[Rfam]
RNA sequence: UUUUAUUCUCAGGGCGGGGCGAAAUUCCCCACCGGCGGUAUACCGAAUGAGGUGAGCCCGCGAGCGCUCGAUUCGUCGAGGUCAGCAGAUCUGGUGAGAGGCCAGAGCCGACGGUUAUAGUCCGGAUGAGAGAGAAUGAAA
Numbered sequence: 001u002u003u004u005a006u007u008c009u010c011a012g013g014g015c016g017g018g019g020c021g022a023a024a025u026u027c028c029c030c031a032c033c034g035g036c037g038g039u040a041u042a043c044c045g046a047a048u049g050a051g052g053u054g055a056g057c058c059c060g061c062g063a064g065c066g067c068u069c070g071a072u073u074c075g076u077c078g079a080g081g082u083c084a085g086c087a088g089a090u091c092u093g094g095u096g097a098g099a100g101g102c103c104a105g106a107g108c109c110g111a112c113g114g115u116u117a118u119a120g121u122c123c124g125g126a127u128g129a130g131a132g133a134g135a136a137u138g139a140a141a
Stems, first nucleotide, its partner, number of pairs: 003139008017029003031121002033110002035061004056108002064086002090106005112124003

The record is a 141-nucleotide RNA sequence from Vibrio vulnificus, which matches "FMN riboswitch aptamer (RFN element)" in Rfam. The sequence is in the family's curated seed alignment. The base pairs follow the family's consensus structure, which is taken from published work.